[Rfam]
RNA sequence: UGCUUAUCACGAGUGGCGGAGGGACUGGCCCUAUGAAGCCCGGCAACCUGUAUAAUAUCAAGGUGCCAAAUCCAACAGUAAACAAACUGGAAGAUGAGUA
Numbered sequence: 001u002g003c004u005u006a007u008c009a010c011g012a013g014u015g016g017c018g019g020a021g022g023g024a025c026u027g028g029c030c031c032u033a034u035g036a037a038g039c040c041c042g043g044c045a046a047c048c049u050g051u052a053u054a055a056u057a058u059c060a061a062g063g064u065g066c067c068a069a070a071u072c073c074a075a076c077a078g079u080a081a082a083c084a085a086a087c088u089g090g091a092a093g094a095u096g097a098g099u100a
Base pairs, nucleotide, nucleotide: 001100002099003098004097005096006095007094008093013041015040016039017038021031022030023029026074027073028072042067043066044065045064047063048062050058051057052056071092076089077088078087079086
The record is a 100-nucleotide sequence from Cellulosilyticum lentocellum, which matches "SAM riboswitch aptamer (S box leader)" in Rfam. A search with the family's covariance model found it, with a score of 86 bits. Gene Ontology term of the family: regulation of gene expression.